About this RNA
Rfam assigns this 90-nucleotide sequence from Oryzias latipes to the family "Y RNA". Taxonomically the source falls in Oryzias (Eukaryota, Euteleostomi, Euacanthomorphacea, Beloniformes).

RNA sequence: GGCUGGUCCGAUGGCAGUGGAAAUCGAAAGCAUUUGCAACAGUCUACGUCUCUUCUCUACUCCCUUCACUGCCAACCUUGACUAGCUUUU
Numbered sequence: 001g002g003c004u005g006g007u008c009c010g011a012u013g014g015c016a017g018u019g020g021a022a023a024u025c026g027a028a029a030g031c032a033u034u035u036g037c038a039a040c041a042g043u044c045u046a047c048g049u050c051u052c053u054u055c056u057c058u059a060c061u062c063c064c065u066u067c068a069c070u071g072c073c074a075a076c077c078u079u080g081a082c083u084a085g086c087u088u089u090u
Stems, first nucleotide, its partner, number of pairs: 002086007010079002016070006022054002026050002
Y RNAs are components of the Ro ribonucleoprotein particle (Ro RNP), in association with Ro60 and La proteins.